[Rfam]
RNA: Plastid-psbA-1 3UTR RNA
RNA sequence: GUUGAAGUUCCAUCUACAAAUGGCUAAGGCUUAGGUCUUAGUGUAUCUGAGUCGUUGAAGUUGCAGGAGUAAUACCCAAUUUCUUGUUCUGUCAAGAGGUCGGGUAUUGCUCCUG
Numbered sequence: 001g002u003u004g005a006a007g008u009u010c011c012a013u014c015u016a017c018a019a020a021u022g023g024c025u026a027a028g029g030c031u032u033a034g035g036u037c038u039u040a041g042u043g044u045a046u047c048u049g050a051g052u053c054g055u056u057g058a059a060g061u062u063g064c065a066g067g068a069g070u071a072a073u074a075c076c077c078a079a080u081u082u083c084u085u086g087u088u089c090u091g092u093c094a095a096g097a098g099g100u101c102g103g104g105u106a107u108u109g110c111u112c113c114u115g
Stems, first nucleotide, its partner, number of pairs: 010023004064115012077102001079100001081098005
Dot-bracket structure: .........((((......))))........................................((((((((((((.(.(.(((((........))))).).).))))))))))))